[Rfam]
Bacterial large signal recognition particle RNA: a 267-nucleotide sequence from Paenibacillus sp. NEAU-GSW1. The base pairs follow the family's consensus structure, which is taken from published work. The source organism's lineage runs through Bacteria, Bacillati, Bacilli, Paenibacillaceae and Paenibacillus. The signal recognition particle (SRP) is a universally conserved ribonucleoprotein involved in the co-translational targeting of proteins to membranes. The match comes from Rfam's covariance-model search (205 bits).
RNA sequence: CCGUGCUAGAUGGGGAGAUAGCGGUGCCCUGUAACUCGCAAUCCGCUUUAGCGAGGUUGAAUUCCUGUUUGAGGUUAUGCAAUGCAGGGUUUGGCGCUUACAAUCAGUGUUGACAGUUGGGUCCUCCGCAAUGGACGCUUGUGAACCCGGUCAGGUCCGGAAGGAAGCAGCCGUAAGCAAGUUAGUUCAUGUGCCGGGGGAGUGCCUGGCUCGAGCUGAGUCGUAAGAAUGCCGCCUGGACUGCAUGUAUCGAGGGCAGGUGCACGG
Numbered sequence: 001c002c003g004u005g006c007u008a009g010a011u012g013g014g015g016a017g018a019u020a021g022c023g024g025u026g027c028c029c030u031g032u033a034a035c036u037c038g039c040a041a042u043c044c045g046c047u048u049u050a051g052c053g054a055g056g057u058u059g060a061a062u063u064c065c066u067g068u069u070u071g072a073g074g075u076u077a078u079g080c081a082a083u084g085c086a087g088g089g090u091u092u093g094g095c096g097c098u099u100a101c102a103a104u105c106a107g108u109g110u111u112g113a114c115a116g117u118u119g120g121g122u123c124c125u126c127c128g129c130a131a132u133g134g135a136c137g138c139u140u141g142u143g144a145a146c147c148c149g150g151u152c153a154g155g156u157c158c159g160g161a162a163g164g165a166a167g168c169a170g171c172c173g174u175a176a177g178c179a180a181g182u183u184a185g186u187u188c189a190u191g192u193g194c195c196g197g198g199g200g201a202g203u204g205c206c207u208g209g210c211u212c213g214a215g216c217u218g219a220g221u222c223g224u225a226a227g228a229a230u231g232c233c234g235c236c237u238g239g240a241c242u243g244c245a246u247g248u249a250u251c252g253a254g255g256g257c258a259g260g261u262g263c264a265c266g267g
Stems, first nucleotide, its partner, number of pairs: 001267006009058003012030004017025001019023001035055005064260007073251003079244003083240001085238004092231002097227005105220001106217003115211008123200006129191002132189005137182006148173004156165003